[Rfam]
RNA sequence: UUUUUGGAGAGUUUGAUCCUGGCUCAGAGUGAACGCUGGCGGCGUGGAUUAGGCAUGCAAGUCGAGCGAACCCGCAAGGGUUAGCGGCAAAAGGGUGAGUAACACGUAAGUAAUCUUCCCUCAAACCUGGAAUAGCACCGUGAAAACGGUGGUAAUACCAGAUAAUUUCAAUUUUCCGCAUGGAGAGUUGAGCAAAGGCGGGGACCGAAAGGCCUGUCAUUUGAGGAUGAGCUUGCGUACCAUCAGCUAGUUGGUAGGGUAAAGGCCUACCAAGGCUUAGACGGUUAGCUGGUCUGAGAGGACGACCAGCCACAUUGGGACUGAGACACUGCCCAGACUCCUACGGGAGGCUGCAGUCGAGGAUAUUUAGCAAUGGACGAAAGUCUGACUAUGCGACGCCGCGUGCAGGAUGAAGGUCUUCGGAUUGUAAACUGCUUUUGUCAGGGGAGAAACCUCCGACGUUAACACCGUCGGAGCUGACGGUACCUGACGAAUAAGCCACGGCCAACUCUGUGCCAGCAGCCGCGGUAAUACAGAGGUGGCAAGCGUUACUCGGAAUUAUUG
Numbered sequence: 001u002u003u004u005u006g007g008a009g010a011g012u013u014u015g016a017u018c019c020u021g022g023c024u025c026a027g028a029g030u031g032a033a034c035g036c037u038g039g040c041g042g043c044g045u046g047g048a049u050u051a052g053g054c055a056u057g058c059a060a061g062u063c064g065a066g067c068g069a070a071c072c073c074g075c076a077a078g079g080g081u082u083a084g085c086g087g088c089a090a091a092a093g094g095g096u097g098a099g100u101a102a103c104a105c106g107u108a109a110g111u112a113a114u115c116u117u118c119c120c121u122c123a124a125a126c127c128u129g130g131a132a133u134a135g136c137a138c139c140g141u142g143a144a145a146a147c148g149g150u151g152g153u154a155a156u157a158c159c160a161g162a163u164a165a166u167u168u169c170a171a172u173u174u175u176c177c178g179c180a181u182g183g184a185g186a187g188u189u190g191a192g193c194a195a196a197g198g199c200g201g202g203g204a205c206c207g208a209a210a211g212g213c214c215u216g217u218c219a220u221u222u223g224a225g226g227a228u229g230a231g232c233u234u235g236c237g238u239a240c241c242a243u244c245a246g247c248u249a250g251u252u253g254g255u256a257g258g259g260u261a262a263a264g265g266c267c268u269a270c271c272a273a274g275g276c277u278u279a280g281a282c283g284g285u286u287a288g289c290u291g292g293u294c295u296g297a298g299a300g301g302a303c304g305a306c307c308a309g310c311c312a313c314a315u316u317g318g319g320a321c322u323g324a325g326a327c328a329c330u331g332c333c334c335a336g337a338c339u340c341c342u343a344c345g346g347g348a349g350g351c352u353g354c355a356g357u358c359g360a361g362g363a364u365a366u367u368u369a370g371c372a373a374u375g376g377a378c379g380a381a382a383g384u385c386u387g388a389c390u391a392u393g394c395g396a397c398g399c400c401g402c403g404u405g406c407a408g409g410a411u412g413a414a415g416g417u418c419u420u421c422g423g424a425u426u427g428u429a430a431a432c433u434g435c436u437u438u439u440g441u442c443a444g445g446g447g448a449g450a451a452a453c454c455u456c457c458g459a460c461g462u463u464a465a466c467a468c469c470g471u472c473g474g475a476g477c478u479g480a481c482g483g484u485a486c487c488u489g490a491c492g493a494a495u496a497a498g499c500c501a502c503g504g505c506c507a508a509c510u511c512u513g514u515g516c517c518a519g520c521a522g523c524c525g526c527g528g529u530a531a532u533a534c535a536g537a538g539g540u541g542g543c544a545a546g547c548g549u550u551a552c553u554c555g556g557a558a559u560u561a562u563u564g
Stems, first nucleotide, its partner, number of pairs: 009025005027554004032550006039402006045395002052358003056355003061088003066085002069082005095313003104238008114230002119226007127161004136151006167192007175184003197218006239285003246276003251273008288310004292303004315336005338349004368391003374387005405435004415426004440491006449481001455475006498543005509538005519526002

This 564-nucleotide part of an RNA from an uncultured bacterium belongs to the Rfam family "Bacterial small subunit ribosomal RNA". Clan: SSU clan. A reference for the family is Yusupov et al. (2001), "Crystal structure of the ribosome at 5.5 A resolution", Science.